[Rfam]
RNA sequence: GGCCGUAUUAGUUCGAUCGGGAUACUCAUCAAUAAAAAAACGAAAACCGAGAUGACUUCUUUUGCUGAUGGCGGGCCACAUUGCCGUAAGGCAUAGCUGUAAAGCCGGUGGAUUACAAAGGCGGAG
Numbered sequence: 001g002g003c004c005g006u007a008u009u010a011g012u013u014c015g016a017u018c019g020g021g022a023u024a025c026u027c028a029u030c031a032a033u034a035a036a037a038a039a040a041c042g043a044a045a046a047c048c049g050a051g052a053u054g055a056c057u058u059c060u061u062u063u064g065c066u067g068a069u070g071g072c073g074g075g076c077c078a079c080a081u082u083g084c085c086g087u088a089a090g091g092c093a094u095a096g097c098u099g100u101a102a103a104g105c106c107g108g109u110g111g112a113u114u115a116c117a118a119a120g121g122c123g124g125a126g
Stems, first nucleotide, its partner, number of pairs: 060126007069117002076111004083092003096105003